Annotation:
A member of the RNA family "Small nucleolar RNA SNORA42/SNORA80 family" from Ursus maritimus, 133 nucleotides long. Rfam describes the family as follows. The members of this family belong to the H/ACA class of snoRNAs that guide the sites of modification of uridines to pseudouridines. Human ACA42 (SNORA42) was cloned from HeLa cells by immunoprecipitation with anti-GAR1 antibody. The family has 21 seed sequences and 1,535 matches in Rfam 15.1. The organism belongs to Ursus, within Eukaryota.
RNA sequence: GUUGUCGUGUCUUUAGAGAAUGGUACUUUCUGUGGGCUUCUCCUAGUGUACCUGCCAGAGGAGCGUGCAGCCCUGAACCAUUGCCCAGCCUCCUCACAGGUGGGCUGUGAGCACUGAAGGGGGCUGUACAGUG
Numbered sequence: 001g002u003u004g005u006c007g008u009g010u011c012u013u014u015a016g017a018g019a020a021u022g023g024u025a026c027u028u029u030c031u032g033u034g035g036g037c038u039u040c041u042c043c044u045a046g047u048g049u050a051c052c053u054g055c056c057a058g059a060g061g062a063g064c065g066u067g068c069a070g071c072c073c074u075g076a077a078c079c080a081u082u083g084c085c086c087a088g089c090c091u092c093c094u095c096a097c098a099g100g101u102g103g104g105c106u107g108u109g110a111g112c113a114c115u116g117a118a119g120g121g122g123g124c125u126g127u128a129c130a131g132u133g
Stems, first nucleotide, its partner, number of pairs: 001053001003050002006048001013046004018041001020039001022037001024034001068126006079116002084111001086107006